[Rfam]
This 102-nucleotide sequence from Paenibacillus sp. 32O-W belongs to the Rfam family "c-di-GMP-I-GGC riboswitch aptamer". Rfam 15.1 lists 1,298 matches to the family in 717 species. Taxonomically the source falls in Paenibacillus (Bacteria, Bacillati, Bacillota, Caryophanales). The family is grouped with related families in Rfam's "c-di-GMP_I riboswitch clan". On this family, see Weinberg et al., Proc Natl Acad Sci U S A 2017: "Bioinformatic analysis of riboswitch structures uncovers variant classes with altered ligand specificity". The family's consensus secondary structure is taken from published work.
RNA sequence: CGCGACAAAGGCAAACCUGUCGAAAGGCAGGGACGCAAAGCUACAGGGUCUAAGUCCGAACGUGCAACCGAGCGUCGGAUAUCGACAGCCUGGCUACCGAAA
Numbered sequence: 001c002g003c004g005a006c007a008a009a010g011g012c013a014a015a016c017c018u019g020u021c022g023a024a025a026g027g028c029a030g031g032g033a034c035g036c037a038a039a040g041c042u043a044c045a046g047g048g049u050c051u052a053a054g055u056c057c058g059a060a061c062g063u064g065c066a067a068c069c070g071a072g073c074g075u076c077g078g079a080u081a082u083c084g085a086c087a088g089c090c091u092g093g094c095u096a097c098c099g100a101a102a
Base pairs, nucleotide, nucleotide: 003099004098011036012035016031017030018029019028020027021026034088039095040094041093042092045091046090047089048086049085050084
Dot-bracket structure: ..((......((...((((((....))))))..[))..((((..((((((.................................))).])))))))..))...